[Rfam]
RNA sequence: AAACCAAGUCAAUGAAUCUGCUUACCCGAAUGUGUUUCUGCAGAAAUUUAGAAAAUGCUGGCAAGAGGAAAGCCAUGUUACAGGCCUUAAAAACAUUGAAGUCAUUAAGGCCCCUGAAAAUGGCUAGAAGA
Numbered sequence: 001a002a003a004c005c006a007a008g009u010c011a012a013u014g015a016a017u018c019u020g021c022u023u024a025c026c027c028g029a030a031u032g033u034g035u036u037u038c039u040g041c042a043g044a045a046a047u048u049u050a051g052a053a054a055a056u057g058c059u060g061g062c063a064a065g066a067g068g069a070a071a072g073c074c075a076u077g078u079u080a081c082a083g084g085c086c087u088u089a090a091a092a093a094c095a096u097u098g099a100a101g102u103c104a105u106u107a108a109g110g111c112c113c114c115u116g117a118a119a120a121u122g123g124c125u126a127g128a129a130g131a
Stems, first nucleotide, its partner, number of pairs: 004061003008058001017044005072124004084111007093102002
The record is a 131-nucleotide sequence from Tursiops truncatus, which matches "Small nucleolar RNA SNORA33" in Rfam. Rfam 15.1 lists 1,176 matches to the family in 522 species. Taxonomically the source falls in Tursiops (Eukaryota, Teleostomi, Eutheria, Artiodactyla). ACA33 is a member of the H/ACA class of snoRNA that guide the sites of modification of uridines to pseudouridines. Gene Ontology terms of the family: nucleolus and RNA processing.